[Rfam]
Shown here is a 99-nucleotide RNA, a member of the family "skipping-rope RNA". The sequence is in the family's curated seed alignment.
RNA sequence: UAAGUUAGAAGUUGAAAGUGAAUAGCACACUGUCCCAACGCGCCAAGCCUGAAAAGGAAGGUGUAAAGAGAUGUGGGGGUGAUAGUCCCACCUAACUUU
Numbered sequence: 001u002a003a004g005u006u007a008g009a010a011g012u013u014g015a016a017a018g019u020g021a022a023u024a025g026c027a028c029a030c031u032g033u034c035c036c037a038a039c040g041c042g043c044c045a046a047g048c049c050u051g052a053a054a055a056g057g058a059a060g061g062u063g064u065a066a067a068g069a070g071a072u073g074u075g076g077g078g079g080u081g082a083u084a085g086u087c088c089c090a091c092c093u094a095a096c097u098u099u
Base pairs, nucleotide, nucleotide: 002098003097004096005095006094007093008092011039012038013037014036030085031084032083033082034081041068042062043061044060073091074090075089076088077087